This 122-nucleotide RNA from Ailuropoda melanoleuca belongs to the Rfam family "Small nucleolar RNA SNORA28". Clan: SNORA28 clan. ACA28 is a member of the H/ACA class of snoRNA that guide the sites of modification of uridines to pseudouridines.

RNA sequence: AAACAACAUUUUGGCAGAACAUCGAAGUUGUUUGACACAAUUUGAGCGUGAUAUGGCAAGAAGCUCUCACCUAUUCCAGCGCUCUCCUCCAUGAGACCAACUGUUAUAUAGACUUAAACAGU
Numbered sequence: 001a002a003a004c005a006a007c008a009u010u011u012u013g014g015c016a017g018a019a020c021a022u023c024g025a026a027g028u029u030g031u032u033u034g035a036c037a038c039a040a041u042u043u044g045a046g047c048g049u050g051a052u053a054u055g056g057c058a059a060g061a062a063g064c065u066c067u068c069a070c071c072u073a074u075u076c077c078a079g080c081g082c083u084c085u086c087c088u089c090c091a092u093g094a095g096a097c098c099a100a101c102u103g104u105u106a107u108a109u110a111g112a113c114u115u116a117a118a119c120a121g122u
Stems, first nucleotide, its partner, number of pairs: 009046003012039001013036001015034004062115002065112003072108003077103003083096004